[Rfam]
RNA: Selenocysteine insertion sequence 1
RNA sequence: AUGUGAGCUGUGACAAACAUUGCAUAAACCAUUUCUAUGCGUGGCAAUGUUUCGAUGAAACACAU
Numbered sequence: 001a002u003g004u005g006a007g008c009u010g011u012g013a014c015a016a017a018c019a020u021u022g023c024a025u026a027a028a029c030c031a032u033u034u035c036u037a038u039g040c041g042u043g044g045c046a047a048u049g050u051u052u053c054g055a056u057g058a059a060a061c062a063c064a065u
Stems, first nucleotide, its partner, number of pairs: 001065005015052009030039003